[Rfam]
RNA sequence: AUGUUAUUAAGAAAGGUGGAGAGAUUAGACUCUAUGAUACCUUGGCAACCCUUCGGCAACGGAGAAGGUGCUACAUUCUACCUCGAUAUAUCGGGAGAAGAUAACAG
Numbered sequence: 001a002u003g004u005u006a007u008u009a010a011g012a013a014a015g016g017u018g019g020a021g022a023g024a025u026u027a028g029a030c031u032c033u034a035u036g037a038u039a040c041c042u043u044g045g046c047a048a049c050c051c052u053u054c055g056g057c058a059a060c061g062g063a064g065a066a067g068g069u070g071c072u073a074c075a076u077u078c079u080a081c082c083u084c085g086a087u088a089u090a091u092c093g094g095g096a097g098a099a100g101a102u103a104a105c106a107g
Stems, first nucleotide, its partner, number of pairs: 002106007013043005021032003026080004044072004049068002051064004076099001082095005

This 107-nucleotide RNA sequence from Kaistella treverensis belongs to the Rfam family "SAM riboswitch aptamer (S box leader)".
Taxonomically the source falls in Kaistella (Bacteria, Pseudomonadati, Bacteroidota, Weeksellaceae).
Gene Ontology term of the family: regulation of gene expression.
A search with the family's covariance model found it, with a score of 72 bits.